[Rfam]
RNA sequence: UUAAAUGUGAGGAGUGAUUCAACGAAAAAGCCCUUGGAGUCGAAACACGGUCAGACGCCCAAGGGCUUUUUUUAA
Numbered sequence: 001u002u003a004a005a006u007g008u009g010a011g012g013a014g015u016g017a018u019u020c021a022a023c024g025a026a027a028a029a030g031c032c033c034u035u036g037g038a039g040u041c042g043a044a045a046c047a048c049g050g051u052c053a054g055a056c057g058c059c060c061a062a063g064g065g066c067u068u069u070u071u072u073u074a075a
Stems, first nucleotide, its partner, number of pairs: 026070007036060002039056003

Annotation:
A member of the RNA family "Cyano-1 RNA" from Oscillatoria sp. FACHB-1407, 75 nucleotides long. The family's consensus secondary structure is taken from published work. Rfam classes the family as a small RNA.